[Rfam]
RNA sequence: GUUGCCAAUGAUGACUCUUUGUAGGCUUGUAAUGAUUUGUGGAGAUGACUGCAAAUAUUAACAUCUAUGGGACUGAGGCAAU
Numbered sequence: 001g002u003u004g005c006c007a008a009u010g011a012u013g014a015c016u017c018u019u020u021g022u023a024g025g026c027u028u029g030u031a032a033u034g035a036u037u038u039g040u041g042g043a044g045a046u047g048a049c050u051g052c053a054a055a056u057a058u059u060a061a062c063a064u065c066u067a068u069g070g071g072a073c074u075g076a077g078g079c080a081a082u
Stems, first nucleotide, its partner, number of pairs: 002081005

A member of the RNA family "Small nucleolar RNA SNORD25" from Rhamnella rubrinervis, 82 nucleotides long. On this family, see Qu et al., Nucleic Acids Res 2001: "Identification of 10 novel snoRNA gene clusters from Arabidopsis thaliana". The family's RNA type in Rfam is C/D-box small nucleolar RNA.